[Rfam]
RNA sequence: GCAUUCAGGUAAUCGCUGCAUAUUUAUAUGUAGAGGAAAGUCCAUGCUCGCACGAGCUGCGAUGCUCGUAGUGUUCGUGCCUAGCGAAGUCAUAAGCUAGGGUAGUCUUUAUAAGACUAACGGCAAGGGAAGCACCUAAGUCAGCUGAUAUGGUGUGAUACCUUUGAAAGUGCCACAGUGACGUAGUCCAGCUGGAAACAGGUGGAGUGGAACGCGGUAAACCCCUCGAGCGAGAAACCCAAAAUUGGUAGGGGCAUCUUCUCAAUCGGAAAUGAACGAAAGAGAAGAACAAGGGAAUCCUUUGUAGAUAGAUGAUUGCCACCGGAGUACGAGGUUCAUCACCGUUUGUAGUACAAUGGAACAGAACAUGGCUUAUCGAA
Numbered sequence: 001g002c003a004u005u006c007a008g009g010u011a012a013u014c015g016c017u018g019c020a021u022a023u024u025u026a027u028a029u030g031u032a033g034a035g036g037a038a039a040g041u042c043c044a045u046g047c048u049c050g051c052a053c054g055a056g057c058u059g060c061g062a063u064g065c066u067c068g069u070a071g072u073g074u075u076c077g078u079g080c081c082u083a084g085c086g087a088a089g090u091c092a093u094a095a096g097c098u099a100g101g102g103u104a105g106u107c108u109u110u111a112u113a114a115g116a117c118u119a120a121c122g123g124c125a126a127g128g129g130a131a132g133c134a135c136c137u138a139a140g141u142c143a144g145c146u147g148a149u150a151u152g153g154u155g156u157g158a159u160a161c162c163u164u165u166g167a168a169a170g171u172g173c174c175a176c177a178g179u180g181a182c183g184u185a186g187u188c189c190a191g192c193u194g195g196a197a198a199c200a201g202g203u204g205g206a207g208u209g210g211a212a213c214g215c216g217g218u219a220a221a222c223c224c225c226u227c228g229a230g231c232g233a234g235a236a237a238c239c240c241a242a243a244a245u246u247g248g249u250a251g252g253g254g255c256a257u258c259u260u261c262u263c264a265a266u267c268g269g270a271a272a273u274g275a276a277c278g279a280a281a282g283a284g285a286a287g288a289a290c291a292a293g294g295g296a297a298u299c300c301u302u303u304g305u306a307g308a309u310a311g312a313u314g315a316u317u318g319c320c321a322c323c324g325g326a327g328u329a330c331g332a333g334g335u336u337c338a339u340c341a342c343c344g345u346u347u348g349u350a351g352u353a354c355a356a357u358g359g360a361a362c363a364g365a366a367c368a369u370g371g372c373u374u375a376u377c378g379a380a
Base pairs, nucleotide, nucleotide: 004380005379006378007376008320009319010318011317012316013315014314016033017032018031019030020029021028038374039373040372042371043370044369045368046367047234048233049232050231051230052069053068054067055066056065057064075229076228077227079225080101081100082099083098084097085096102121103119104118105117106116107115108114122224123223125164126163127162128161133155134154135153136152140149141148142147170222171221172218173217174216187206188205189204190203192201193200194199238253239252240251257288258287259286260285261284262283263282289305290304291303292302293301294300322359323358324357327354328353329352330351

Bacterial RNase P class B: a 380-nucleotide RNA from Halalkalibacter hemicellulosilyticus. It scores 336 bits against the family's covariance model. On this family, see Brown, Nucleic Acids Res 1999: "The Ribonuclease P Database". Gene Ontology terms of the family: tRNA processing, dimeric ribonuclease P complex and ribonuclease P activity. Ribonuclease P (RNase P) is a ubiquitous endoribonuclease, found in archaea, bacteria and eukarya as well as chloroplasts and mitochondria. Its best characterised activity is the generation of mature 5'-ends of tRNAs by cleaving the 5'-leader elements of precursor-tRNAs. Cellular RNase Ps are ribonucleoproteins. RNA from bacterial RNase Ps retains its catalytic activity in the absence of the protein subunit, i.e. it is a ribozyme.